The record is a 74-nucleotide RNA sequence from a Syntrophaceae bacterium, which matches "tRNA" in Rfam.
About the family: Transfer RNA (tRNA) molecules are approximately 80 nucleotides in length.
A search with the family's covariance model found it, with a score of 65 bits.
Rfam links the family to the GO term triplet codon-amino acid adaptor activity.
The source organism's lineage runs through Bacteria, Thermodesulfobacteriota, Syntrophia, Syntrophales and Syntrophaceae.
It is annotated as a transfer RNA.
The family's consensus secondary structure is taken from published work.
RNA sequence: GCGCCCGUAGCUCAGCUGGAUAGAGCGUCGGACUUCGAAUCCGCAGGCCGUCCGUUCGAGUCGGACCGGGCGCG
Numbered sequence: 001g002c003g004c005c006c007g008u009a010g011c012u013c014a015g016c017u018g019g020a021u022a023g024a025g026c027g028u029c030g031g032a033c034u035u036c037g038a039a040u041c042c043g044c045a046g047g048c049c050g051u052c053c054g055u056u057c058g059a060g061u062c063g064g065a066c067c068g069g070g071c072g073c074g
Stems, first nucleotide, its partner, number of pairs: 001073007010026004029043004050066005